Shown here is a 140-nucleotide sequence, a member of the family "RAGATH-24 RNA".

[Rfam]
RNA sequence: UUGACAGUCCCAGCACCACCUGCCCUCGUGAGAUACACGAGGUGGGGUCUUCGCCGCUUGCGGUCGUAUCUCGGAGCAUUGAGAUAUGGGAAGUGAAGACCUGCGGAUUAGUCCGCUUGAUGACGUGGUACGCAGGACGU
Numbered sequence: 001u002u003g004a005c006a007g008u009c010c011c012a013g014c015a016c017c018a019c020c021u022g023c024c025c026u027c028g029u030g031a032g033a034u035a036c037a038c039g040a041g042g043u044g045g046g047g048u049c050u051u052c053g054c055c056g057c058u059u060g061c062g063g064u065c066g067u068a069u070c071u072c073g074g075a076g077c078a079u080u081g082a083g084a085u086a087u088g089g090g091a092a093g094u095g096a097a098g099a100c101c102u103g104c105g106g107a108u109u110a111g112u113c114c115g116c117u118u119g120a121u122g123a124c125g126u127g128g129u130a131c132g133c134a135g136g137a138c139g140u
Stems, first nucleotide, its partner, number of pairs: 007138004016128004024042007046101009103116004
About this RNA: The sequence is in the family's curated seed alignment.